[Rfam]
RNA sequence: AGUCUGCUGUGACGAGUUCAGUCCGUGUUUCAGCUGAUCUACCCUGAUUACACACAUGCCCUGAGCAGACU
Numbered sequence: 001a002g003u004c005u006g007c008u009g010u011g012a013c014g015a016g017u018u019c020a021g022u023c024c025g026u027g028u029u030u031c032a033g034c035u036g037a038u039c040u041a042c043c044c045u046g047a048u049u050a051c052a053c054a055c056a057u058g059c060c061c062u063g064a065g066c067a068g069a070c071u
Stems, first nucleotide, its partner, number of pairs: 001071007

A member of the RNA family "Small nucleolar RNA SNORD126" from Gopherus evgoodei, 71 nucleotides long.
It scores 71 bits against the family's covariance model.
The literature on the family includes a 2006 paper in Nucleic Acids Res by Yang et al., "snoSeeker: an advanced computational package for screening of guide and orphan snoRNA genes in the human genome".
Its family is annotated with RNA processing and nucleolus in the Gene Ontology.
Taxonomically the source falls in Gopherus (Eukaryota, Sarcopterygii, Sauropsida, Testudinoidea).